Shown here is a 65-nucleotide RNA from Aedes aegypti, a member of the family "mir-308 microRNA precursor family". The source organism's lineage runs through Eukaryota, Allotriocarida, Neoptera, Diptera and Stegomyia. Pairs were carried over by alignment from the consensus structure, which was predicted with RNAalifold. The literature on the family includes a 2010 paper in BMC Genomics by Skalsky et al., "Identification of microRNAs expressed in two mosquito vectors, Aedes albopictus and Culex quinquefasciatus".

RNA sequence: UUCGCGGUAUAUUCUUGUGGCUUGAUGCAUUUGAAAAAUCUCAAAUCACAGGAGUAUACUGUGAG
Numbered sequence: 001u002u003c004g005c006g007g008u009a010u011a012u013u014c015u016u017g018u019g020g021c022u023u024g025a026u027g028c029a030u031u032u033g034a035a036a037a038a039u040c041u042c043a044a045a046u047c048a049c050a051g052g053a054g055u056a057u058a059c060u061g062u063g064a065g
Stems, first nucleotide, its partner, number of pairs: 001065011013053007022044003